[Rfam]
RNA sequence: AGGCCCAGAGAGGGGGGCAGGGUCUGAUCCACAGCCUCCAUGGAAGCUAUUGAUCAGCCAUUGCCUCUCUCUCUCUCUGGG
Numbered sequence: 001a002g003g004c005c006c007a008g009a010g011a012g013g014g015g016g017g018c019a020g021g022g023u024c025u026g027a028u029c030c031a032c033a034g035c036c037u038c039c040a041u042g043g044a045a046g047c048u049a050u051u052g053a054u055c056a057g058c059c060a061u062u063g064c065c066u067c068u069c070u071c072u073c074u075c076u077c078u079g080g081g
Base pairs, nucleotide, nucleotide: 008073009072010071011070012069013068014067015066016065017064018063019062020061022059024057025056026055027054028053029052033048034047035046

Record summary
mir-574 microRNA precursor family: an 81-nucleotide RNA sequence from Myotis myotis. The source organism's lineage runs through Eukaryota, Eumetazoa, Craniata, Boreoeutheria and Myotis. On this family, see Lui et al., Cancer Res 2007: "Patterns of known and novel small RNAs in human cervical cancer". The match comes from Rfam's covariance-model search (84 bits). The family has 6 seed sequences and 4,084 matches in Rfam 15.1.